[Rfam]
RNA sequence: UUCUUAUCGAGAGAGACCGAGGGACUGGCCCAAGGACGUCUCGGCAGCAGACUCUUUGAAAGAGUGCUGUGCCAAAUCCAGCAAGCAAAAUGUGCUUGAAAGAUAAGAA
Numbered sequence: 001u002u003c004u005u006a007u008c009g010a011g012a013g014a015g016a017c018c019g020a021g022g023g024a025c026u027g028g029c030c031c032a033a034g035g036a037c038g039u040c041u042c043g044g045c046a047g048c049a050g051a052c053u054c055u056u057u058g059a060a061a062g063a064g065u066g067c068u069g070u071g072c073c074a075a076a077u078c079c080a081g082c083a084a085g086c087a088a089a090a091u092g093u094g095c096u097u098g099a100a101a102g103a104u105a106a107g108a109a
Base pairs, nucleotide, nucleotide: 001109002108003107004106005105006104007103008102013042014041015040016039017038021031022030023029025081026080027079028078043073044072045071046070048069049068051065052064053063054062077101082098083097084096085095086094087093